[Rfam]
RNA sequence: UGGCGCCCAACGUGGGGCACCUGGUACGGAGGAUACAGUGACGGAACCAUCCAAGAGAGCCGGCAAGAGAGAAAGACAAAAGAGGAAGUAAAAGAGGCCCACGCUGCAGUUGCCUGCUGCGACAUCUGAACCUCGGUAAGCCGACAGCACCCCCUUUCCCUUUCCCUUCGGCAAUGGGGCAGGCAUUAAGUGAACAUGAGAUAUUUGUAAAAAGUUUGAGUAAAGCAUUAAAGGCGUGAGGAGUAAAGGUUAAAAUUAAGGAUUUGUGCCAAUAUUUUAAAUAUAUUAAACAAGUUU
Numbered sequence: 001u002g003g004c005g006c007c008c009a010a011c012g013u014g015g016g017g018c019a020c021c022u023g024g025u026a027c028g029g030a031g032g033a034u035a036c037a038g039u040g041a042c043g044g045a046a047c048c049a050u051c052c053a054a055g056a057g058a059g060c061c062g063g064c065a066a067g068a069g070a071g072a073a074a075g076a077c078a079a080a081a082g083a084g085g086a087a088g089u090a091a092a093a094g095a096g097g098c099c100c101a102c103g104c105u106g107c108a109g110u111u112g113c114c115u116g117c118u119g120c121g122a123c124a125u126c127u128g129a130a131c132c133u134c135g136g137u138a139a140g141c142c143g144a145c146a147g148c149a150c151c152c153c154c155u156u157u158c159c160c161u162u163u164c165c166c167u168u169c170g171g172c173a174a175u176g177g178g179g180c181a182g183g184c185a186u187u188a189a190g191u192g193a194a195c196a197u198g199a200g201a202u203a204u205u206u207g208u209a210a211a212a213a214g215u216u217u218g219a220g221u222a223a224a225g226c227a228u229u230a231a232a233g234g235c236g237u238g239a240g241g242a243g244u245a246a247a248g249g250u251u252a253a254a255a256u257u258a259a260g261g262a263u264u265u266g267u268g269c270c271a272a273u274a275u276u277u278u279a280a281a282u283a284u285a286u287u288a289a290a291c292a293a294g295u296u297u
Base pairs, nucleotide, nucleotide: 006032007031012027013026014025038050039049040048093137096133097132102128105121106120107119108118109117145182147180148179150178151177152176187230188229189228190226191225237279238278239277240276241275243273244272247265248264249263250262251261
Rfam assigns this 297-nucleotide RNA sequence from Octodon degus to the family "Mason-Pfizer monkey virus packaging signal". The family has 9 seed sequences and 2,921 matches in Rfam 15.1. It is annotated as a cis-regulatory element. Rfam's curators write: This family represents a group of sequences that are related to the Mason-Pfizer monkey virus (MPMV) packaging signal. The packaging signal is located in the 5' UTR and is required for specific RNA encapsidation.